[Rfam]
RNA sequence: CACUCCGAGGAGCGUUGCAGCGCUCCAGACCCUUCAAGGGGCUGGGCGUGAGGCUCGGAACUGUCCUGACACAACGACGCUCACCCGCU
Numbered sequence: 001c002a003c004u005c006c007g008a009g010g011a012g013c014g015u016u017g018c019a020g021c022g023c024u025c026c027a028g029a030c031c032c033u034u035c036a037a038g039g040g041g042c043u044g045g046g047c048g049u050g051a052g053g054c055u056c057g058g059a060a061c062u063g064u065c066c067u068g069a070c071a072c073a074a075c076g077a078c079g080c081u082c083a084c085c086c087g088c089u
Base pairs, nucleotide, nucleotide: 004059005058006057007056008055021048022047023046024045025044

SAH (S-adenosyl-L-homocysteine) riboswitch aptamer: an 89-nucleotide sequence from a Burkholderiaceae bacterium. Rfam 15.1 lists 1,354 matches to the family in 1,132 species.